[Rfam]
Nucleotides: 086
Base pairs, nucleotide, nucleotide: 003025004024005023006022007021008020026054027053028052029051030050031049032048061078062077063076064075065074066073067072
Number, partner (000 for none) and nucleotide at each position: 001000c002000c003025c004024c005023c006022g007021c008020u009000u010000u011000a012000c013000c014000u015000c016000c017000c018000u019000g020008a021007g022006c023005g024004g025003g026054g027053c028052c029051u030050u031049g032048c033000c034000g035000g036000g037000c038000c039000g040000c041000a042000a043000u044000c045000c046000u047000u048032g049031c050030a051029a052028g053027g054026c055000u056000u057000a058000c059000u060000c061078g062077c063076c064075c065074g066073g067072c068000u069000u070000c071000c072067g073066c074065c075064g076063g077062g078061c079000u080000u081000u082000u083000u084000u085000u086000u